[Rfam]
RNA: nhaA-II RNA
RNA sequence: AUCAGGUCGCUCCGCGCGGCCAGGCCGGCGCGCUCCGUAAGGGGCGACGAAUCCGGUCCGACGCCCGUCGAUAACCUGGCGUCACG
Numbered sequence: 001a002u003c004a005g006g007u008c009g010c011u012c013c014g015c016g017c018g019g020c021c022a023g024g025c026c027g028g029c030g031c032g033c034u035c036c037g038u039a040a041g042g043g044g045c046g047a048c049g050a051a052u053c054c055g056g057u058c059c060g061a062c063g064c065c066c067g068u069c070g071a072u073a074a075c076c077u078g079g080c081g082u083c084a085c086g
Base pairs, nucleotide, nucleotide: 005021006020007019008018009017010016023058024057025056026055027054028053029049030048031046032045033044034043035042036041060083061082062081063080064079065078